[Rfam]
RNA sequence: GGGCGAAGGGGCCCGAAUGCUCCUUCGCCCGCACUGACACCGGUACCUGAUACGGCCGGUGCAG
Numbered sequence: 001g002g003g004c005g006a007a008g009g010g011g012c013c014c015g016a017a018u019g020c021u022c023c024u025u026c027g028c029c030c031g032c033a034c035u036g037a038c039a040c041c042g043g044u045a046c047c048u049g050a051u052a053c054g055g056c057c058g059g060u061g062c063a064g
Stems, first nucleotide, its partner, number of pairs: 001030012034064003038061007